[Rfam]
RNA sequence: AGGUGAGGUAGAGGUUGCGAAAGCGAUGAGUAGCUGCAAGGAGGCGUAAGAGCCGCCUGUGACUUGCGGUGAAGGGCGCUUUCGCCGAAGCGUGCGCAUCCGCCCUUAUGAAGUGCAUGCUGGGGCUGUACCCGAAAGGGACAGAACUGUCGCGGCCCAUGGCUUCUUAUAGCCUGCCGGCCGUGGUGAGCUAUCUUUCAU
Numbered sequence: 001a002g003g004u005g006a007g008g009u010a011g012a013g014g015u016u017g018c019g020a021a022a023g024c025g026a027u028g029a030g031u032a033g034c035u036g037c038a039a040g041g042a043g044g045c046g047u048a049a050g051a052g053c054c055g056c057c058u059g060u061g062a063c064u065u066g067c068g069g070u071g072a073a074g075g076g077c078g079c080u081u082u083c084g085c086c087g088a089a090g091c092g093u094g095c096g097c098a099u100c101c102g103c104c105c106u107u108a109u110g111a112a113g114u115g116c117a118u119g120c121u122g123g124g125g126c127u128g129u130a131c132c133c134g135a136a137a138g139g140g141a142c143a144g145a146a147c148u149g150u151c152g153c154g155g156c157c158c159a160u161g162g163c164u165u166c167u168u169a170u171a172g173c174c175u176g177c178c179g180g181c182c183g184u185g186g187u188g189a190g191c192u193a194u195c196u197u198u199c200a201u
Stems, first nucleotide, its partner, number of pairs: 006196006017085009033070008089121009099111002122148002126144004131139002150186007
RNA: Lysine riboswitch aptamer